[Rfam]
RNA sequence: CACGUGUUCCGGGGUCGGUGGAAGUCCGAGCCGGCGGUGAAAGUCCGCGACCCGAUCGCAGCCAGCGACCGGUUGAUGUGGUGAAACUCCACGACCGACGGUGAGAGUCCGGAUGGGAGGAACACGGG
Numbered sequence: 001c002a003c004g005u006g007u008u009c010c011g012g013g014g015u016c017g018g019u020g021g022a023a024g025u026c027c028g029a030g031c032c033g034g035c036g037g038u039g040a041a042a043g044u045c046c047g048c049g050a051c052c053c054g055a056u057c058g059c060a061g062c063c064a065g066c067g068a069c070c071g072g073u074u075g076a077u078g079u080g081g082u083g084a085a086a087c088u089c090c091a092c093g094a095c096c097g098a099c100g101g102u103g104a105g106a107g108u109c110c111g112g113a114u115g116g117g118a119g120g121a122a123c124a125c126g127g128g
Base pairs, nucleotide, nucleotide: 003126004125005124006123007122008121009120010119016028017027018026030108031107032097033096034048035047036046037045043095044094052072053071077093078092079091080090081089099111100110101109
The record is a 128-nucleotide RNA sequence from Friedmanniella luteola, which matches "FMN riboswitch aptamer (RFN element)" in Rfam. The base pairs follow the family's consensus structure, which is taken from published work. Lineage of the source: Bacteria > Actinomycetota > Actinomycetes > Nocardioidaceae > Friedmanniella.